[Rfam]
RNA sequence: GUGAAUCCAGUAGGAAUUGAACCUACAAAUUUGCCAAUUAUAAGUGGGGCGCUUUAACCAUUUAGCCAUGGAUGC
Numbered sequence: 001g002u003g004a005a006u007c008c009a010g011u012a013g014g015a016a017u018u019g020a021a022c023c024u025a026c027a028a029a030u031u032u033g034c035c036a037a038u039u040a041u042a043a044g045u046g047g048g049g050c051g052c053u054u055u056a057a058c059c060a061u062u063u064a065g066c067c068a069u070g071g072a073u074g075c
Stems, first nucleotide, its partner, number of pairs: 003075001005073004010026005040069002044066002047063003051059001
About this RNA: This 75-nucleotide RNA sequence from Ziziphus jujuba belongs to the Rfam family "Plastid-ycf2 5UTR RNA". Taxonomically the source falls in Ziziphus (Eukaryota, Embryophyta, Spermatophyta, Pentapetalae). On this family, see Richter et al., Plant Commun 2023: "Retrograde signaling in plants: A critical review focusing on the GUN pathway and beyond". Plastid ycf2 is a non-coding RNA (ncRNA) recognised in plastids. It was found in the prime untranslated region (5UTR) of ycf2 genes, it presents a tRNA-like motif which suggests it can be involved in mRNA maturation, particularly involved in defining the precise 5' end of the transcript.